The record is a 115-nucleotide RNA sequence from Oryzicola mucosus, which matches "Alphaproteobacterial ar15" in Rfam. Gene Ontology term of the family: protein binding. It is annotated as a small RNA. The pairing is the family consensus, mapped onto this sequence. Lineage of the source: Bacteria > Alphaproteobacteria > Hyphomicrobiales > Phyllobacteriaceae > Oryzicola. The match comes from Rfam's covariance-model search (40 bits). The family is grouped with related families in Rfam's "suhB sRNA clan".

RNA sequence: AUCUCAGGGGCGUGUUCUCCUCCCAUUACCGCCCCCGAGUGUUCCCCUCUGGAGGUUGGCCCUAACGGGCGACUCCAAUCAAACUCAGCCGGAUCAUUCUCGAUCCGGCUUUUUU
Numbered sequence: 001a002u003c004u005c006a007g008g009g010g011c012g013u014g015u016u017c018u019c020c021u022c023c024c025a026u027u028a029c030c031g032c033c034c035c036c037g038a039g040u041g042u043u044c045c046c047c048u049c050u051g052g053a054g055g056u057u058g059g060c061c062c063u064a065a066c067g068g069g070c071g072a073c074u075c076c077a078a079u080c081a082a083a084c085u086c087a088g089c090c091g092g093a094u095c096a097u098u099c100u101c102g103a104u105c106c107g108g109c110u111u112u113u114u115u
Base pairs, nucleotide, nucleotide: 001040003039004038005037007035008034009033010032011031012030050077051076052075053074054073087110088109089108090107091106092105093104094103095102